RNA sequence: GCUUUCAACAUCCCCGUCCAGCGCCCAUCAGGAUUUCCGAGGCGGCUGGGCUGAAGGC
Numbered sequence: 001g002c003u004u005u006c007a008a009c010a011u012c013c014c015c016g017u018c019c020a021g022c023g024c025c026c027a028u029c030a031g032g033a034u035u036u037c038c039g040a041g042g043c044g045g046c047u048g049g050g051c052u053g054a055a056g057g058c
Stems, first nucleotide, its partner, number of pairs: 001058007013044001014042001016051007031038002
Dot-bracket structure: (((((((.....[[.(((((((........((....))...].]))))))))))))))
RNA: nadA riboswitch